[Rfam]
RNA sequence: UGCCCUAAAGGUUAAGUAUUACCUUUAGGGCAACCAUGUAGCAUGUAGCA
Numbered sequence: 001u002g003c004c005c006u007a008a009a010g011g012u013u014a015a016g017u018a019u020u021a022c023c024u025u026u027a028g029g030g031c032a033a034c035c036a037u038g039u040a041g042c043a044u045g046u047a048g049c050a
Base pairs, nucleotide, nucleotide: 001032002031003030004029005028006027007026008025009024010023011022